[Rfam]
RNA sequence: GGAGGAAGGCCCUCCGGGGUCGGCGUGCAGGCGCGGGCCUCAAACAGCCGUAAGCUGCUUCAGUCGGAAACGCUGCGGUGGUGAACGUUACGGUCAAAAGGCGUGAUUAAACACGUCAUG
Numbered sequence: 001g002g003a004g005g006a007a008g009g010c011c012c013u014c015c016g017g018g019g020u021c022g023g024c025g026u027g028c029a030g031g032c033g034c035g036g037g038c039c040u041c042a043a044a045c046a047g048c049c050g051u052a053a054g055c056u057g058c059u060u061c062a063g064u065c066g067g068a069a070a071c072g073c074u075g076c077g078g079u080g081g082u083g084a085a086c087g088u089u090a091c092g093g094u095c096a097a098a099a100g101g102c103g104u105g106a107u108u109a110a111a112c113a114c115g116u117c118a119u120g
Stems, first nucleotide, its partner, number of pairs: 001015005016041006023034004045120002048093006054082002057079003061075004100117006

This 120-nucleotide RNA sequence from Caballeronia sp. SBC1 belongs to the Rfam family "Group II catalytic intron D1-D4-2". Pairs were carried over by alignment from the consensus structure. Rfam describes the family as follows. Group II introns are found in rRNA, tRNA and mRNA of organelles in fungi, plants and protists, and also in mRNA in bacteria.